[Rfam]
RNA sequence: AGCGCGACCGGAUCGACGCCGCGAGUCACGACCAGGUAAUCGCGAAUGGCGAUACUGUGCCGGUUCUC
Numbered sequence: 001a002g003c004g005c006g007a008c009c010g011g012a013u014c015g016a017c018g019c020c021g022c023g024a025g026u027c028a029c030g031a032c033c034a035g036g037u038a039a040u041c042g043c044g045a046a047u048g049g050c051g052a053u054a055c056u057g058u059g060c061c062g063g064u065u066c067u068c
Stems, first nucleotide, its partner, number of pairs: 005062002008059001013028001015027003035056004040052004
Notes: Shown here is a 68-nucleotide RNA sequence from Nocardia sp. SYP-A9097, a member of the family "ASdes TB sRNA". The match comes from Rfam's covariance-model search (72 bits). By type it is a small RNA. The organism belongs to Nocardia, within Bacteria. Rfam 15.1 lists 1,192 matches to the family in 825 species.